[Rfam]
RNA sequence: CUCCUGUGAUGACUGAUGCUUUGUGCCACGUGUCUGGGCCACUGAAUGAUCGUGAUGGCUUUGAGGAUCUGAUGGAG
Numbered sequence: 001c002u003c004c005u006g007u008g009a010u011g012a013c014u015g016a017u018g019c020u021u022u023g024u025g026c027c028a029c030g031u032g033u034c035u036g037g038g039c040c041a042c043u044g045a046a047u048g049a050u051c052g053u054g055a056u057g058g059c060u061u062u063g064a065g066g067a068u069c070u071g072a073u074g075g076a077g
Base pairs, nucleotide, nucleotide: 001077002076003075004074
Dot-bracket structure: ((((.....................................................................))))